[Rfam]
RNA sequence: UGCCGAUGAUUGAACAACAAUAUUUAAGAGUAGUGGACAGAAGUGAUUUCUGAUAUGUUUCUCUGAGGCA
Numbered sequence: 001u002g003c004c005g006a007u008g009a010u011u012g013a014a015c016a017a018c019a020a021u022a023u024u025u026a027a028g029a030g031u032a033g034u035g036g037a038c039a040g041a042a043g044u045g046a047u048u049u050c051u052g053a054u055a056u057g058u059u060u061c062u063c064u065g066a067g068g069c070a
Stems, first nucleotide, its partner, number of pairs: 001070004
Rfam assigns this 70-nucleotide RNA sequence from Danionella cerebrum to the family "Small nucleolar RNA SNORD75". For this family Rfam cites "Classification of gas5 as a multi-small-nucleolar-RNA (snoRNA) host gene and a member of the 5'-terminal oligopyrimidine gene family reveals common features of snoRNA host genes" (Smith and Steitz, Mol Cell Biol, 1998). By type it is a C/D-box small nucleolar RNA. A search with the family's covariance model found it, with a score of 64 bits. The organism belongs to Danionella, within Eukaryota.